[Rfam]
RNA sequence: UUCCCGAAACGGCACACUUAUUGAAAGAUAAGGUCGCAAAGUUUUUGAGUCUAAGGUACAAUCUUGUACUAAGAUCGUCAGACUAUCGAA
Numbered sequence: 001u002u003c004c005c006g007a008a009a010c011g012g013c014a015c016a017c018u019u020a021u022u023g024a025a026a027g028a029u030a031a032g033g034u035c036g037c038a039a040a041g042u043u044u045u046u047g048a049g050u051c052u053a054a055g056g057u058a059c060a061a062u063c064u065u066g067u068a069c070u071a072a073g074a075u076c077g078u079c080a081g082a083c084u085a086u087c088g089a090a
Stems, first nucleotide, its partner, number of pairs: 012037002017032006040084004046080003049075003056069004
RNA: c-di-GMP-I riboswitch aptamer
Organism: Orenia metallireducens